Overview:
This 121-nucleotide sequence from Pipistrellus kuhlii belongs to the Rfam family "Small nucleolar RNA SNORA28".
[Rfam]
RNA sequence: AAGCAACACUGUAGCAGACCGUCAGAACUCUCUGAUGUAAUUUGAGCUCGAGGGAGCAAGAAAGUCCCACCUAUUCUGGUGCUCUCUCCUCUGAGACAAGCCAUUAUGUAGACUUGACAGU
Numbered sequence: 001a002a003g004c005a006a007c008a009c010u011g012u013a014g015c016a017g018a019c020c021g022u023c024a025g026a027a028c029u030c031u032c033u034g035a036u037g038u039a040a041u042u043u044g045a046g047c048u049c050g051a052g053g054g055a056g057c058a059a060g061a062a063a064g065u066c067c068c069a070c071c072u073a074u075u076c077u078g079g080u081g082c083u084c085u086c087u088c089c090u091c092u093g094a095g096a097c098a099a100g101c102c103a104u105u106a107u108g109u110a111g112a113c114u115u116g117a118c119a120g121u
Stems, first nucleotide, its partner, number of pairs: 009044001010039004015034004062115005072108003077103004085096004
Record summary: A search with the family's covariance model found it, with a score of 76 bits. The family's RNA type in Rfam is H/ACA-box small nucleolar RNA. Lineage of the source: Eukaryota > Metazoa > Gnathostomata > Teleostomi > Pipistrellus.